A member of the RNA family "Mason-Pfizer monkey virus packaging signal" from Sciurus carolinensis, 275 nucleotides long. Pairs were carried over by alignment from the consensus structure, which was predicted with PFOLD. It is annotated as a cis-regulatory element. A search with the family's covariance model found it, with a score of 159 bits.
[Rfam]
RNA sequence: UGGCACCCAACUUGGGGCUGGGAUAGGGGGAAUUCGGGAGGGAAGAGGCUUUUAUUCAUUGGGCCGAACAAAGCGAAAGCCAGUUCAAGAAGGAUUGCUGCAGGAGCCUGCCGCAUCGCUCUUAAAGGUACAGUAACGCCUAAUUAUGGGACAAGAAUUAAGUAAGCAUAAAGUUUUUGUUAAGCAAUUAAAAGAAGCCUUAAAGACAUGGGGAGUAAAGGUUAAGAGUAAUGAUCUUUUUAAGUUUUUUGACCUUAUUAAGGACACCUGUCCGU
Dot-bracket structure: .....(((....((.........))..)))....(.........)..................................(...((........(.(..(((.(.......).)))..).)...)).)......(....((((....))))...)....(((((.................................)).)))......((((((((..((((((.......))))))......))))))))........(.((((....)))).)
The organism belongs to Sciurus, within Eukaryota.
A reference for the family is Mustafa et al. (2004), "Mutational analysis of the predicted secondary RNA structure of the Mason-Pfizer monkey virus packaging signal", Virus Res.